[Rfam]
RNA: MIR1120/MIR1122 microRNA precursor family
RNA sequence: UUACUUCCUCUGUCCUACAAUAUAAGAUGUUUUUGCAAGCUAAAACAGCUUACAAAAACAUCUUAUAUUGUGGGACAGAGGGGGUAC
Numbered sequence: 001u002u003a004c005u006u007c008c009u010c011u012g013u014c015c016u017a018c019a020a021u022a023u024a025a026g027a028u029g030u031u032u033u034u035g036c037a038a039g040c041u042a043a044a045a046c047a048g049c050u051u052a053c054a055a056a057a058a059c060a061u062c063u064u065a066u067a068u069u070g071u072g073g074g075a076c077a078g079a080g081g082g083g084g085u086a087c
Base pairs, nucleotide, nucleotide: 003085004084005083007081008080009079010078011077013075014074015073016072017071019069020068021067022066023065024064025063026062027061028060029059030058031057032056033055034054035053037051038050039049040048041047